[Rfam]
RNA sequence: CGAUGCCUCUGGAAAGCGGUGCGACCGUCUCGGUCCACCCGCCGAUGGGGAAAGGCGCAGGGGGGACUACGCGCCGAAUCUCUCAGGCGCCCGAUGACUGGGUGGAGGACAGAGGGGGAGGG
Numbered sequence: 001c002g003a004u005g006c007c008u009c010u011g012g013a014a015a016g017c018g019g020u021g022c023g024a025c026c027g028u029c030u031c032g033g034u035c036c037a038c039c040c041g042c043c044g045a046u047g048g049g050g051a052a053a054g055g056c057g058c059a060g061g062g063g064g065g066a067c068u069a070c071g072c073g074c075c076g077a078a079u080c081u082c083u084c085a086g087g088c089g090c091c092c093g094a095u096g097a098c099u100g101g102g103u104g105g106a107g108g109a110c111a112g113a114g115g116g117g118g119a120g121g122g
Base pairs, nucleotide, nucleotide: 004117006115007114008113009112010111011110018039019038020037021036041088042087043086044084045083048082049081050080054075055074056073057072058071
About this RNA:
The family of this 122-nucleotide RNA from Mycobacterium sherrisii is "Glycine riboswitch aptamer". A search with the family's covariance model found it, with a score of 41 bits. Taxonomically the source falls in Mycobacterium simiae complex (Bacteria, Bacillati, Actinomycetota, Actinomycetes).